RNA sequence: AGCUUUGCGCAGUGGCAGUAUCGUAGCCAAUGAGGUUACUCCGAGGUGCGCUUAUUGCUAAUUGAAAACUUCCAGCUGUCAGAACAGUGAAUCUUUUCAAAAAGAUACAUCUAACUUGCUGAUUCCCAUUUCAUUGU
Numbered sequence: 001a002g003c004u005u006u007g008c009g010c011a012g013u014g015g016c017a018g019u020a021u022c023g024u025a026g027c028c029a030a031u032g033a034g035g036u037u038a039c040u041c042c043g044a045g046g047u048g049c050g051c052u053u054a055u056u057g058c059u060a061a062u063u064g065a066a067a068a069c070u071u072c073c074a075g076c077u078g079u080c081a082g083a084a085c086a087g088u089g090a091a092u093c094u095u096u097u098c099a100a101a102a103a104g105a106u107a108c109a110u111c112u113a114a115c116u117u118g119c120u121g122a123u124u125c126c127c128a129u130u131u132c133a134u135u136g137u
Base pairs, nucleotide, nucleotide: 020052022050023049024048026047027046028045034042035041086112087111088109089108091106092105093104094103095102096101127136128135
RNA: U4 spliceosomal RNA